[Rfam]
Nucleotides: 081
Stems, first nucleotide, its partner, number of pairs: 012049001015047002020081007027044005053070001055068005
Number, partner (000 for none) and nucleotide at each position: 001000u002000u003000u004000g005000c006000a007000a008000g009000u010000u011000u012049g013000a014000g015047g016046c017000c018000a019000u020081a021080g022079c023078a024077g025076a026075a027044g028043u029042g030041c031040u032000c033000a034000u035000g036000g037000c038000a039000c040031a041030g042029c043028a044027u045000a046016g047015c048000c049012c050000u051000g052000u053070c054000a055068g056067a057066u058065u059064c060000c061000a062000a063000u064059g065058a066057a067056u068055c069000a070053g071000u072000g073000a074000a075026u076025u077024c078023u079022g080021c081020u